[Rfam]
RNA sequence: GAUAUGCGUUGAAGUGAAAGGUUGCCGGCGGUAUGCCGGGGAAUUUUCAUGGAGUAUGUCCGAUUUUAAACCGGGCGA
Dot-bracket structure: .............(((.((((...(((((.....)))))....)))))))........((...(((......))).))
S10-Clostridia ribosomal protein leader: a 78-nucleotide sequence from Ruminococcus sp. CAG:330. The family's consensus secondary structure is taken from published work. The organism belongs to Ruminococcus, within Bacteria.